[Rfam]
RNA sequence: CGAGUAAGUCAGACAAUCGCUGCUGUAGUUUAUCUACAGGAGAGGAAAGUCCGAGCUCCAUAGGGCAGGAUGCUGGGUAACCCCCAGUCAAGGUGACUUGAAGGAAAGUGCAACAGAGAUAUACUUCCGAAUUUUUUCGGUAAAGGUGGAAAGGCGAGGUAAGAGCUCACCAGCGCAUUGGCGACUUUGCGGCUAUGUAAACCCCAUCUGGAGCAAGAUCGAAUAGGAAAGCAUAAAAGAAGUGGCCCGCUUCGCUUUCGGGUAGUAUCGCUGGAGCCUAUUGGCAACAAUAGGCCUAGAUAGAUGAUUGUCUAAUACAGAACUCGGCUUAUAGACUUAGUCGCAUA
Dot-bracket structure: (((.((((((((((((((.((.((((((.....)))))).))....[[[.[[[[[((((...[[[[.((((((((((.....)))))(((((....)))).)((...(((((...........((.(((((....)))))...)).......((.(((.......))).)).(((((..(....)..)))).)..)))..)))))))))))))...((((......((((((......(((((.]]]]))))))))))).....).)))......((((((((....))))))))..........)))))))..........]]]]]]]].).)))))).)))....